[Rfam]
RNA sequence: UGGAAAUUAUUAGAUACACAGUUAUUUAAAGUUAUUGAUAGCUGUCACAGUAAUUUCCUACAAUAAAAAGACUUUCUGAUGACUACAGUUCUUUUAGUCUAAACUGUAGACAGAUACGAAGUCAACAGCU
Numbered sequence: 001u002g003g004a005a006a007u008u009a010u011u012a013g014a015u016a017c018a019c020a021g022u023u024a025u026u027u028a029a030a031g032u033u034a035u036u037g038a039u040a041g042c043u044g045u046c047a048c049a050g051u052a053a054u055u056u057c058c059u060a061c062a063a064u065a066a067a068a069a070g071a072c073u074u075u076c077u078g079a080u081g082a083c084u085a086c087a088g089u090u091c092u093u094u095u096a097g098u099c100u101a102a103a104c105u106g107u108a109g110a111c112a113g114a115u116a117c118g119a120a121g122u123c124a125a126c127a128g129c130u
Stems, first nucleotide, its partner, number of pairs: 002058006018045004025038002070123006083109003088104002
Dot-bracket structure: .((((((..........((((...((..........))...)))).......))))))...........((((((.......(((..((.............))..)))........)))))).......
RNA: Small Cajal body specific RNA 8
Organism: Lottia gigantea